[Rfam]
RNA: Small nucleolar RNA SNORD103/SNORD85
Organism: Pitta sordida
RNA sequence: UCUGGCAGUGAUGACACUCUUGCCCUCUCUGAGCAGCUCUGGCUGAUGAGAGUGGUUUCAGCGCUCUGUGUUGCUGAGCCAGA
Number, nucleotide and partner (000 for none) at each position: 001u083002c082003u081004g080005g079006c078007a000008g000009u000010g000011a000012u000013g000014a000015c000016a000017c000018u000019c000020u000021u000022g000023c000024c000025c000026u000027c000028u000029c000030u000031g000032a000033g000034c000035a000036g000037c000038u000039c000040u000041g000042g000043c000044u000045g000046a000047u000048g000049a000050g000051a000052g000053u000054g000055g000056u000057u000058u000059c000060a000061g000062c000063g000064c000065u000066c000067u000068g000069u000070g000071u000072u000073g000074c000075u000076g000077a000078g006079c005080c004081a003082g002083a001